[Rfam]
RNA sequence: CUGCACAGUGAACAGCCAAGUGAACUUUGUAGUUCCUUGGUUACAACUUUGUGCUACAUUAAGUCCUGUGCUUUUCCUCUGCAUUGGAAGAAAUAUUUCUUUAACAUGUAUUCAUAAGUACAGUACAUUG
Numbered sequence: 001c002u003g004c005a006c007a008g009u010g011a012a013c014a015g016c017c018a019a020g021u022g023a024a025c026u027u028u029g030u031a032g033u034u035c036c037u038u039g040g041u042u043a044c045a046a047c048u049u050u051g052u053g054c055u056a057c058a059u060u061a062a063g064u065c066c067u068g069u070g071c072u073u074u075u076c077c078u079c080u081g082c083a084u085u086g087g088a089a090g091a092a093a094u095a096u097u098u099c100u101u102u103a104a105c106a107u108g109u110a111u112u113c114a115u116a117a118g119u120a121c122a123g124u125a126c127a128u129u130g
Stems, first nucleotide, its partner, number of pairs: 003054006010048001016040005022035001024033003056072001060068002078116001080114002082108003087102006
Dot-bracket structure: ..((((((.(.....(((((.(.(((....))).)))))).......))))))).(...((.....))...).....(.(((((..((((((....))))))...)))....)).)..............

The family of this 130-nucleotide RNA from Microcaecilia unicolor is "Small nucleolar RNA SNORA22". Rfam describes the family as follows. ACA22 is a member of the H/ACA class of snoRNA that guide the sites of modification of uridines to pseudouridines. The organism belongs to Microcaecilia, within Eukaryota. The match comes from Rfam's covariance-model search (90 bits).